The family of this 116-nucleotide sequence from Streptomyces yokosukanensis is "Group II catalytic intron D1-D4-2".
The family has 144 seed sequences and 1,231 matches in Rfam 15.1.
The pairing is the family consensus, mapped onto this sequence.
RNA sequence: GAAGGAAGGCCCUUCGAAGUCGCCCUGCGGGGGGAGAUUUCAAACCGCCACAUGCUGCGGAAGUGGUGACGCGACCGUAGUGAGCGAUGUGGAAAAGGCGUCUUAAGGCGUCAGGU
Number, nucleotide and partner (000 for none) at each position: 001g015002a014003a013004g012005g011006a000007a000008g000009g000010c000011c005012c004013u003014u002015c001016g041017a040018a039019g038020u037021c036022g000023c034024c033025c032026u031027g000028c000029g000030g000031g026032g025033g024034g023035a000036g021037a020038u019039u018040u017041c016042a000043a000044a000045c000046c115047g000048c092049c091050a090051c089052a088053u087054g081055c080056u000057g078058c077059g076060g000061a000062a000063g072064u071065g000066g000067u000068g000069a000070c000071g064072c063073g000074a000075c000076c059077g058078u057079a000080g055081u054082g000083a000084g000085c000086g000087a053088u052089g051090u050091g049092g048093a000094a000095a000096a000097g112098g111099c110100g109101u108102c107103u000104u000105a000106a000107g102108g101109c100110g099111u098112c097113a000114g000115g046116u000